[Rfam]
RNA sequence: AAAGUUCUUCGGGGCAGGGUGCAAUUCCCUACCGGCGGUGACAGUCCGCGACCCGUUGUUUUCCAAGCGUUUACCCGCGCGAGGACAGGACGGCUGACUUGGUGAAAUUCCAGGACCGACAGUAUAGUCUGGAUGAGAGAAGAAAGAU
Numbered sequence: 001a002a003a004g005u006u007c008u009u010c011g012g013g014g015c016a017g018g019g020u021g022c023a024a025u026u027c028c029c030u031a032c033c034g035g036c037g038g039u040g041a042c043a044g045u046c047c048g049c050g051a052c053c054c055g056u057u058g059u060u061u062u063c064c065a066a067g068c069g070u071u072u073a074c075c076c077g078c079g080c081g082a083g084g085a086c087a088g089g090a091c092g093g094c095u096g097a098c099u100u101g102g103u104g105a106a107a108u109u110c111c112a113g114g115a116c117c118g119a120c121a122g123u124a125u126a127g128u129c130u131g132g133a134u135g136a137g138a139g140a141a142g143a144a145a146g147a148u
Base pairs, nucleotide, nucleotide: 005144006143007142008141009140010139017029018028019027031128032127033118034117035049036048037047038046044116045115053093054092055091056090057089098114099113100112101111102110120131121130122129
Dot-bracket structure: ....((((((......(((.......))).[[((((((.....[[))))...(((((...............................)))))....(((((.......)))))]])).(((....]]))).......))))))....